This 76-nucleotide RNA sequence from Polypterus senegalus belongs to the Rfam family "mir-19 microRNA precursor family".
[Rfam]
RNA sequence: GUUUUCUGUUAGUUUUGCAUAGUUGCACUACAAGAAAAAAUGAGUUGUGCAAAUCUAUGCAAAACUGACAGUGGCC
Numbered sequence: 001g002u003u004u005u006c007u008g009u010u011a012g013u014u015u016u017g018c019a020u021a022g023u024u025g026c027a028c029u030a031c032a033a034g035a036a037a038a039a040a041u042g043a044g045u046u047g048u049g050c051a052a053a054u055c056u057a058u059g060c061a062a063a064a065c066u067g068a069c070a071g072u073g074g075c076c
Stems, first nucleotide, its partner, number of pairs: 003074002006071014023052006030045002
A reference for the family is Mourelatos et al. (2002), "miRNPs: a novel class of ribonucleoproteins containing numerous microRNAs", Genes Dev. It scores 70 bits against the family's covariance model.